[Rfam]
A member of the RNA family "mir-971 microRNA precursor family" from Acanthoscelides obtectus, 75 nucleotides long. Its family is annotated with miRNA-mediated post-transcriptional gene silencing and RISC complex in the Gene Ontology.
RNA sequence: UAGUCGGCUCACUCUAAGUUUGAACACCAAGCUUCGGUUUAUCGUUUGGUGUUUUACCUUACAGUGAGCGGGCUG
Number, nucleotide and partner (000 for none) at each position: 001u000002a000003g000004u000005c000006g000007g069008c068009u067010c066011a065012c064013u063014c000015u061016a060017a059018g000019u000020u000021u000022g000023a000024a000025c051026a050027c049028c048029a047030a046031g045032c044033u000034u000035c000036g000037g000038u000039u000040u000041a000042u000043c000044g032045u031046u030047u029048g028049g027050u026051g025052u000053u000054u000055u000056a000057c000058c000059u017060u016061a015062c000063a013064g012065u011066g010067a009068g008069c007070g000071g000072g000073c000074u000075g000